SAM/SAH riboswitch aptamer: a 48-nucleotide RNA from Rubellimicrobium thermophilum. Pairs were carried over by alignment from the consensus structure, which is taken from published work. Lineage of the source: Bacteria > Pseudomonadota > Alphaproteobacteria > Rubellimicrobium > Rubellimicrobium thermophilum. Its family is annotated with S-adenosylmethionine metabolic process and regulation of gene expression in the Gene Ontology.
RNA sequence: UCCCCGUCACAACGGCUUCCUGGCGUGACGGGCGUAACCAAUGGAGCG
Numbered sequence: 001u002c003c004c005c006g007u008c009a010c011a012a013c014g015g016c017u018u019c020c021u022g023g024c025g026u027g028a029c030g031g032g033c034g035u036a037a038c039c040a041a042u043g044g045a046g047c048g
Base pairs, nucleotide, nucleotide: 004031005030006029007028008027009026010025013022014021015047016046017045019044020043